Shown here is a 118-nucleotide RNA, a member of the family "Plastid-psbA-1 3UTR RNA". It is one of the family's seed sequences.
Nucleotides: 118
Base pairs, nucleotide, nucleotide: 009024010023011022012021013020068118069117070116071115072114073113074112075111076110078108079107081106083103084102085101086100087099
Number, partner (000 for none) and nucleotide at each position: 001000g002000u003000g004000g005000a006000a007000g008000u009024u010023c011022c012021a013020u014000c015000u016000a017000u018000a019000a020013a021012u022011g023010g024009a025000u026000a027000a028000u029000a030000c031000u032000u033000u034000u035000g036000u037000a038000u039000a040000c041000a042000u043000a044000u045000a046000u047000a048000u049000g050000u051000a052000u053000a054000u055000g056000a057000a058000u059000u060000u061000u062000u063000g064000a065000a066000g067000a068118u069117a070116g071115c072114a073113a074112u075111c076110c077000c078108c079107c080000a081106a082000u083103a084102u085101c086100u087099u088000g089000u090000u091000c092000u093000a094000a095000g096000a097000a098000c099087a100086a101085g102084a103083u104000a105000u106081u107079g108078g109000g110076g111075g112074a113073u114072u115071g116070c117069u118068a